small nucleolar RNA snoR117: a 78-nucleotide RNA sequence from Hordeum vulgare. The family's RNA type in Rfam is C/D-box small nucleolar RNA. The match comes from Rfam's covariance-model search (53 bits).

RNA sequence: GGCCUGUGAUGUGAACAAUUUGUCCGUACCAUCUGACACCUCUGAUGAUCCACAUUUGCUAAUGUAUCUCUGAGGCCC
Numbered sequence: 001g002g003c004c005u006g007u008g009a010u011g012u013g014a015a016c017a018a019u020u021u022g023u024c025c026g027u028a029c030c031a032u033c034u035g036a037c038a039c040c041u042c043u044g045a046u047g048a049u050c051c052a053c054a055u056u057u058g059c060u061a062a063u064g065u066a067u068c069u070c071u072g073a074g075g076c077c078c
Stems, first nucleotide, its partner, number of pairs: 001077004